Rfam assigns this 219-nucleotide RNA sequence from Anaeromicrobium sediminis to the family "T-box leader". Rfam links the family to the GO term tRNA binding.
[Rfam]
RNA sequence: AUAAAGACUGUGAAUAGGAAAAGUAAGUUUUAAUAUGCUUUUAGAGAAUGACCAUCAUGGGCUGAAAGUGGUCUAAGAUUAUAUUAAAACCGAAAAUGCACCUAGGAGUCGUGGCCUGAAAUAAUAGUAGGGUUUAUGGGGUGGCACCCUUAUAUGCCAACUAAGCUGAGAAGGAAACUUCUAAGCAGAGUGGAACCGCGAUAAAUCUUCGUCUCUGUA
Numbered sequence: 001a002u003a004a005a006g007a008c009u010g011u012g013a014a015u016a017g018g019a020a021a022a023g024u025a026a027g028u029u030u031u032a033a034u035a036u037g038c039u040u041u042u043a044g045a046g047a048a049u050g051a052c053c054a055u056c057a058u059g060g061g062c063u064g065a066a067a068g069u070g071g072u073c074u075a076a077g078a079u080u081a082u083a084u085u086a087a088a089a090c091c092g093a094a095a096a097u098g099c100a101c102c103u104a105g106g107a108g109u110c111g112u113g114g115c116c117u118g119a120a121a122u123a124a125u126a127g128u129a130g131g132g133u134u135u136a137u138g139g140g141g142u143g144g145c146a147c148c149c150u151u152a153u154a155u156g157c158c159a160a161c162u163a164a165g166c167u168g169a170g171a172a173g174g175a176a177a178c179u180u181c182u183a184a185g186c187a188g189a190g191u192g193g194a195a196c197c198g199c200g201a202u203a204a205a206u207c208u209u210c211g212u213c214u215c216u217g218u219a
Base pairs, nucleotide, nucleotide: 007109008108015104016103017102018101027090028089029088030087031086039078040077041076050073051072052071053070054069055068112136113135114133115132116131117130138149139148140147169182170181171180172179173178187216188215189214190213198212199211200210201209